[Rfam]
RNA: nhaA-I RNA
RNA sequence: GUGUGCGGCCCCGGGGUGGGGCCUGCAGGUCGUUGCCGCUGGUCGGGCCGCCAGCG
Dot-bracket structure: ....(((((((.......))).))))..........(((((((......)))))))
Numbered sequence: 001g002u003g004u005g006c007g008g009c010c011c012c013g014g015g016g017u018g019g020g021g022c023c024u025g026c027a028g029g030u031c032g033u034u035g036c037c038g039c040u041g042g043u044c045g046g047g048c049c050g051c052c053a054g055c056g
Stems, first nucleotide, its partner, number of pairs: 005026004009021003037056007